[Rfam]
Rfam assigns this 145-nucleotide RNA sequence from Cognatilysobacter bugurensis to the family "Molybdenum/Tungsten riboswitch aptamer (Moco RNA motif)".
It scores 60 bits against the family's covariance model.
The organism belongs to Cognatilysobacter, within Bacteria.
RNA sequence: GGCCUGCCGACACUCCGAAGUCGCAACGCCUUCGCCCCUCGUGGCAUGGCGCGGCGACCGUGGCCCGCGACCCCGCGCGGCCACCCGGUCGCGGUGGAAACGCCGCGGCCUCCCGUGCUUGGAAAGGAGUCAAUCGAUGACGCCG
Number, nucleotide and partner (000 for none) at each position: 001g000002g000003c139004c000005u000006g000007c000008c000009g000010a000011c000012a130013c129014u128015c127016c126017g000018a000019a000020g058021u057022c056023g055024c054025a000026a000027c051028g050029c049030c048031u000032u000033c000034g045035c044036c043037c000038c000039u000040c000041g000042u000043g036044g035045c034046a000047u000048g030049g029050c028051g027052c000053g000054g024055c023056g022057a021058c020059c000060g084061u083062g082063g081064c080065c000066c000067g000068c000069g000070a000071c000072c000073c000074c000075g000076c000077g000078c000079g000080g064081c063082c062083a061084c060085c000086c000087g110088g109089u108090c107091g106092c105093g104094g103095u102096g101097g000098a000099a000100a000101c096102g095103c094104c093105g092106c091107g090108g089109c088110c087111u000112c122113c121114c000115g000116u000117g000118c000119u000120u000121g113122g112123a000124a000125a000126g016127g015128a014129g013130u012131c000132a000133a000134u000135c000136g000137a000138u000139g003140a000141c000142g000143c000144c000145g000